[Rfam]
RNA sequence: CGACCCCUGGCGGGAGAGUCGAGCCGCUCAGCUCGACGCCGAAGGAGCAACUCUCCCCACGAAUCUCUCAGGCCCCGCACCGCUUGGGUGAG
Numbered sequence: 001c002g003a004c005c006c007c008u009g010g011c012g013g014g015a016g017a018g019u020c021g022a023g024c025c026g027c028u029c030a031g032c033u034c035g036a037c038g039c040c041g042a043a044g045g046a047g048c049a050a051c052u053c054u055c056c057c058c059a060c061g062a063a064u065c066u067c068u069c070a071g072g073c074c075c076c077g078c079a080c081c082g083c084u085u086g087g088g089u090g091a092g
Stems, first nucleotide, its partner, number of pairs: 006087002009084005019036004038073003041069002045067003051061001
RNA: Glycine riboswitch aptamer
Organism: Nocardioides sp.